Rfam assigns this 95-nucleotide RNA sequence from Camelus dromedarius to the family "mir-1184 microRNA precursor family". The family's consensus secondary structure was predicted with RNAalifold. Rfam 15.1 lists 204 matches to the family in 120 species. Gene Ontology terms of the family: RISC complex and miRNA-mediated post-transcriptional gene silencing.
RNA sequence: CCUGCAGCACGAGGUGAAGUGGGUGUUCUGCUCGGCACUCAACGCGGCCACAUCUCCACCUGCAGCGACUUGACGCUUCCGUGUCCUCUCGUGGG
Numbered sequence: 001c002c003u004g005c006a007g008c009a010c011g012a013g014g015u016g017a018a019g020u021g022g023g024u025g026u027u028c029u030g031c032u033c034g035g036c037a038c039u040c041a042a043c044g045c046g047g048c049c050a051c052a053u054c055u056c057c058a059c060c061u062g063c064a065g066c067g068a069c070u071u072g073a074c075g076c077u078u079c080c081g082u083g084u085c086c087u088c089u090c091g092u093g094g095g
Stems, first nucleotide, its partner, number of pairs: 005093002007090001009089001011088004019080001021078007029067004035063003044059001046057002